[Rfam]
RNA sequence: GACCUGAACAUUGGGGAGUAGUCGUCCUCCGUUUGAGGGGAGCUCGCGUCAACAAACUUGGCCCAACCCGUGAGGGAGCAGGCCAUGGCGCGGUGCGGCAAUCAGGUCCUAAGGGUCUGAAUGCUU
Numbered sequence: 001g002a003c004c005u006g007a008a009c010a011u012u013g014g015g016g017a018g019u020a021g022u023c024g025u026c027c028u029c030c031g032u033u034u035g036a037g038g039g040g041a042g043c044u045c046g047c048g049u050c051a052a053c054a055a056a057c058u059u060g061g062c063c064c065a066a067c068c069c070g071u072g073a074g075g076g077a078g079c080a081g082g083c084c085a086u087g088g089c090g091c092g093g094u095g096c097g098g099c100a101a102u103c104a105g106g107u108c109c110u111a112a113g114g115g116u117c118u119g120a121a122u123g124c125u126u
Base pairs, nucleotide, nucleotide: 025040026039027038042096043095044093045092046091047090048089049088050087051086059085060084061083062082063081
The record is a 126-nucleotide RNA from Govanella unica, which matches "Manganese Mn2+ riboswitch aptamer (yybP-ykoY)" in Rfam. It scores 48 bits against the family's covariance model. The source organism's lineage runs through Bacteria, Pseudomonadati, Pseudomonadota, Govanellaceae and Govanella. On this family, see Argaman et al., Curr Biol 2001: "Novel small RNA-encoding genes in the intergenic regions of Escherichia coli". Pairs were carried over by alignment from the consensus structure.